[Rfam]
RNA sequence: UGACUCUGGUUUCUCUUCAGACUGCAUACAUCUUUUGCCUUUUACUAAAGAUUUCCAUGGAGGAGAACUGGUUAAAUUUGUGUUAUAGUAGAGUAAGUUUAAAAUUAUUUAAUGAUUAUA
Numbered sequence: 001u002g003a004c005u006c007u008g009g010u011u012u013c014u015c016u017u018c019a020g021a022c023u024g025c026a027u028a029c030a031u032c033u034u035u036u037g038c039c040u041u042u043u044a045c046u047a048a049a050g051a052u053u054u055c056c057a058u059g060g061a062g063g064a065g066a067a068c069u070g071g072u073u074a075a076a077u078u079u080g081u082g083u084u085a086u087a088g089u090a091g092a093g094u095a096a097g098u099u100u101a102a103a104a105u106u107a108u109u110u111a112a113u114g115a116u117u118a119u120a
Base pairs, nucleotide, nucleotide: 003083004082006080009068010067011066012065014063015062016061017060018059019058028054030052031051032050033049034048035047104119105118107116108115
A member of the RNA family "U5 spliceosomal RNA" from Alligator sinensis, 120 nucleotides long. It scores 51 bits against the family's covariance model. Lineage of the source: Eukaryota > Bilateria > Sauropsida > Alligatoridae > Alligator.